[Rfam]
RNA sequence: UUAAUAUUUUCGCUUAAUCUUUUGUUAAGAGCGGGGGACCCAAUUUUUAUGGCGGCAUGUCCGCGUGGGGUGAAUCCUAUCAACGGAUGGGCUGAUUGUUUCCCAUAGUCCUAACCCGAAAGCUAACCUCGUCAGCGUUUAAGGAAACAAAU
Numbered sequence: 001u002u003a004a005u006a007u008u009u010u011c012g013c014u015u016a017a018u019c020u021u022u023u024g025u026u027a028a029g030a031g032c033g034g035g036g037g038a039c040c041c042a043a044u045u046u047u048u049a050u051g052g053c054g055g056c057a058u059g060u061c062c063g064c065g066u067g068g069g070g071u072g073a074a075u076c077c078u079a080u081c082a083a084c085g086g087a088u089g090g091g092c093u094g095a096u097u098g099u100u101u102c103c104c105a106u107a108g109u110c111c112u113a114a115c116c117c118g119a120a121a122g123c124u125a126a127c128c129u130c131g132u133c134a135g136c137g138u139u140u141a142a143g144g145a146a147a148c149a150a151a152u
Stems, first nucleotide, its partner, number of pairs: 011137004018030003031132006041067002068117003076086002089111006
Shown here is a 152-nucleotide sequence from Lederbergia galactosidilytica, a member of the family "c-di-AMP riboswitch aptamer (ydaO/yuaA leader)". The source organism's lineage runs through Bacteria, Bacillati, Bacillota, Caryophanales and Lederbergia.